Shown here is a 98-nucleotide sequence from Methylomicrobium album, a member of the family "Guanidine-I riboswitch aptamer". The family has 100 seed sequences and 1,509 matches in Rfam 15.1. This family represents a conserved RNA structure found upstream of the ykkC and yxkD genes in Bacillus subtilis and related genes in other bacteria. The literature on the family includes a 2021 paper in RNA by Trachman RJ 3rd and Ferre-D'Amare, "An uncommon [K(+)(Mg(2+))2] metal ion triad imparts stability and selectivity to the Guanidine-I riboswitch". A search with the family's covariance model found it, with a score of 87 bits. The organism belongs to Methylomicrobium album, within Bacteria.
RNA sequence: AAAAAUGGCGACUAGGGUUCCGGCUCAUCAGUGAGUGUCUGGACCGAGAGUUGCCGGCUCCGGUAGGGGCUACACGGCGGGAUAAAAGCCCGGGAGGA
Numbered sequence: 001a002a003a004a005a006u007g008g009c010g011a012c013u014a015g016g017g018u019u020c021c022g023g024c025u026c027a028u029c030a031g032u033g034a035g036u037g038u039c040u041g042g043a044c045c046g047a048g049a050g051u052u053g054c055c056g057g058c059u060c061c062g063g064u065a066g067g068g069g070c071u072a073c074a075c076g077g078c079g080g081g082a083u084a085a086a087a088g089c090c091c092g093g094g095a096g097g098a
Stems, first nucleotide, its partner, number of pairs: 007055006015045002020042002022039001023036005056071006073093001075096001079091003